[Rfam]
The family of this 218-nucleotide RNA from Cucumis melo is "MIR159 microRNA precursor family". Its family is annotated with RISC complex and miRNA-mediated post-transcriptional gene silencing in the Gene Ontology. The family has 66 seed sequences and 3,649 matches in Rfam 15.1. A reference for the family is Jones-Rhoades and Bartel (2004), "Computational identification of plant microRNAs and their targets, including a stress-induced miRNA", Mol Cell.
RNA sequence: GGGUUUGAGGCAGAGCUCCUUGAAGUCCAAUAGAGGUUUAUGCCAGGUUGAUUGAGCUGCUAAGCUAUGGAUCCCACAGCCCCUAUUGCUAUAUCCAUCAUGUUGUUGUAUAAUAUCUUUAAAGCUGAUAGGCCUGUGGCUUGCAUAUCUCAGGAGCUUCAUCACCUGUUUCUGUUAGAUCCUUGUUUGGAUUGAAGGGAGCUCUACAUCUUCUCUCU
Numbered sequence: 001g002g003g004u005u006u007g008a009g010g011c012a013g014a015g016c017u018c019c020u021u022g023a024a025g026u027c028c029a030a031u032a033g034a035g036g037u038u039u040a041u042g043c044c045a046g047g048u049u050g051a052u053u054g055a056g057c058u059g060c061u062a063a064g065c066u067a068u069g070g071a072u073c074c075c076a077c078a079g080c081c082c083c084u085a086u087u088g089c090u091a092u093a094u095c096c097a098u099c100a101u102g103u104u105g106u107u108g109u110a111u112a113a114u115a116u117c118u119u120u121a122a123a124g125c126u127g128a129u130a131g132g133c134c135u136g137u138g139g140c141u142u143g144c145a146u147a148u149c150u151c152a153g154g155a156g157c158u159u160c161a162u163c164a165c166c167u168g169u170u171u172c173u174g175u176u177a178g179a180u181c182c183u184u185g186u187u188u189g190g191a192u193u194g195a196a197g198g199g200a201g202c203u204c205u206a207c208a209u210c211u212u213c214u215c216u217c218u
Base pairs, nucleotide, nucleotide: 013204014203015202016201017200018199019198020197024193025192026191027190028189029188036181057156058155060153061152066147067146068145069144074139075138076137077136078135079134